Rfam assigns this 117-nucleotide RNA sequence from Dipodomys ordii to the family "Small nucleolar RNA SNORA40".
The snoRNA ACA 40 belongs to the H/ACA family of snoRNAs and guides the pseudouridylation of 28S rRNA subunit at position U4565.
For this family Rfam cites "Mapping to nucleotide resolution of pseudouridine residues in large subunit ribosomal RNAs from representative eukaryotes, prokaryotes, archaebacteria, mitochondria and chloroplasts" (Ofengand and Bakin, J Mol Biol, 1997).
The family's consensus secondary structure was predicted with RNAalifold.
Rfam 15.1 lists 2,550 matches to the family in 517 species.
[Rfam]
RNA sequence: CACUUCUGUGUGUGUGUCUUUGUUUAAUUUGUAAUAAAGCCUUACAGAUGUGAACAGUAAAUCCUCUUUUGCAACCCAGAAGAAUAUGAGAUUUUGGUACAUGUAAAAAAGAAUAUA
Number, nucleotide and partner (000 for none) at each position: 001c052002a051003c050004u000005u048006c047007u046008g045009u044010g000011u000012g000013u000014g000015u000016g041017u000018c039019u038020u037021u036022g035023u034024u000025u000026a000027a000028u033029u000030u000031g000032u000033a028034a023035u022036a021037a020038a019039g018040c000041c016042u000043u000044a009045c008046a007047g006048a005049u000050g003051u002052g001053a000054a000055c000056a000057g000058u000059a000060a000061a114062u113063c000064c111065u110066c000067u108068u107069u106070u105071g104072c000073a000074a000075c000076c000077c096078a095079g094080a093081a092082g000083a000084a000085u000086a000087u000088g000089a000090g000091a000092u081093u080094u079095u078096g077097g000098u000099a000100c000101a000102u000103g000104u071105a070106a069107a068108a067109a000110a065111g064112a000113a062114u061115a000116u000117a000
The source organism's lineage runs through Eukaryota, Craniata, Dipnotetrapodomorpha, Tetrapoda and Dipodomys.